[Rfam]
RNA sequence: UAGCUCGGGUUUCUUGUCAUUCACGCAUAAAUCUUUCGCCUUUUACUAAAGAUUUCCGUGGAGAGGAAUGUUGACGAGUACGGCUUAUUUUUGCAAGCUUUACUUUAGCAAAGCU
Number, nucleotide and partner (000 for none) at each position: 001u000002a000003g079004c078005u077006c076007g000008g000009g069010u068011u067012u066013c065014u064015u063016g000017u061018c060019a059020u000021u000022c000023a000024c000025g000026c000027a000028u000029a055030a054031a053032u052033c051034u050035u049036u048037c000038g000039c000040c000041u000042u000043u000044u000045a000046c000047u000048a036049a035050a034051g033052a032053u031054u030055u029056c000057c000058g000059u019060g018061g017062a000063g015064a014065g013066g012067a011068a010069u009070g000071u000072u000073g000074a000075c000076g006077a005078g004079u003080a000081c000082g000083g000084c000085u000086u000087a000088u000089u000090u000091u000092u000093g000094c000095a115096a000097g114098c113099u112100u111101u110102a000103c000104u000105u000106u000107a000108g000109c000110a101111a100112a099113g098114c097115u095

This 115-nucleotide RNA from Ameiurus melas belongs to the Rfam family "U5 spliceosomal RNA". The family's RNA type in Rfam is spliceosomal small nuclear RNA. Pairs were carried over by alignment from the consensus structure, which is taken from published work. Rfam links the family to the GO terms U5 snRNP and spliceosomal tri-snRNP complex assembly. About the family: U5 RNA is a component of both types of known spliceosome. On this family, see Zwieb, Nucleic Acids Res 1997: "The uRNA database". Taxonomically the source falls in Ameiurus (Eukaryota, Metazoa, Craniata, Siluriformes).